Notes:
This 110-nucleotide RNA sequence from Polaribacter irgensii belongs to the Rfam family "SAM riboswitch aptamer (S box leader)". It is one of the family's seed sequences. The base pairs follow the family's consensus structure, which is taken from published work. The organism belongs to Polaribacter irgensii, within Bacteria.

[Rfam]
RNA sequence: AUGUUAUCAAGAAAGGCGGAGGGAUUAGACCCAUUGAAGCCUUAGCAACCCUUUAGUAAUAAAGAAGGUGCUAAAUUCUACUCAAUUAUUCGUAAUUGGAUAGAUAACAA
Number, nucleotide and partner (000 for none) at each position: 001a000002u109003g108004u107005u106006a105007u104008c103009a000010a000011g000012a000013a043014a042015g041016g040017c039018g000019g000020a000021g032022g031023g030024a000025u000026u080027a079028g078029a077030c023031c022032c021033a000034u000035u000036g000037a000038a000039g017040c016041c015042u014043u013044a072045g071046c070047a069048a000049c068050c067051c064052u063053u062054u061055a000056g000057u000058a000059a000060u000061a054062a053063a052064g051065a000066a000067g050068g049069u047070g046071c045072u044073a000074a000075a000076u102077u029078c028079u027080a026081c099082u098083c000084a096085a000086u094087u000088a000089u000090u000091c000092g000093u000094a086095a000096u084097u000098g082099g081100a000101u000102a076103g008104a007105u006106a005107a004108c003109a002110a000